Rfam assigns this 116-nucleotide RNA sequence from Streptacidiphilus jiangxiensis to the family "Glycine riboswitch aptamer". The source organism's lineage runs through Bacteria, Bacillati, Actinomycetota, Actinomycetes and Streptacidiphilus. The literature on the family includes a 2004 paper in Science by Mandal et al., "A glycine-dependent riboswitch that uses cooperative binding to control gene expression". About the family: This family represents the bacterial glycine riboswitch.
RNA sequence: UCGACUCUGGAAAGCAGAACCGUGCCGGGCACCCCGGAACGGUUCUCACCGACGGUGAAAGUCGGCUCCCCCAAGGAGCCGGUGAAGCUCUCAGGUCCCAUGACAGAGGGGGAGGU
Numbered sequence: 001u002c003g004a005c006u007c008u009g010g011a012a013a014g015c016a017g018a019a020c021c022g023u024g025c026c027g028g029g030c031a032c033c034c035c036g037g038a039a040c041g042g043u044u045c046u047c048a049c050c051g052a053c054g055g056u057g058a059a060a061g062u063c064g065g066c067u068c069c070c071c072c073a074a075g076g077a078g079c080c081g082g083u084g085a086a087g088c089u090c091u092c093a094g095g096u097c098c099c100a101u102g103a104c105a106g107a108g109g110g111g112g113a114g115g116u
Base pairs, nucleotide, nucleotide: 002111005108006107007106008105009104016046017045018044019043020042021041022040023039048096049095050094051092052091055090057088061083062082063081064080065079066078067077068076069075